[Rfam]
RNA: NiCo (Nickel/Cobalt) riboswitch aptamer
RNA sequence: GGGAACUGAGCAGGCAAUGACCAGAGCGGUCAUGCAGCCGGGCUGCGAAAGCGGCAACAGAUGAUUACACGCACAUCUGUGGGACAGUUCCCAC
Numbered sequence: 001g002g003g004a005a006c007u008g009a010g011c012a013g014g015c016a017a018u019g020a021c022c023a024g025a026g027c028g029g030u031c032a033u034g035c036a037g038c039c040g041g042g043c044u045g046c047g048a049a050a051g052c053g054g055c056a057a058c059a060g061a062u063g064a065u066u067a068c069a070c071g072c073a074c075a076u077c078u079g080u081g082g083g084a085c086a087g088u089u090c091c092c093a094c
Stems, first nucleotide, its partner, number of pairs: 005088004011083001013039003017033006042055005057080006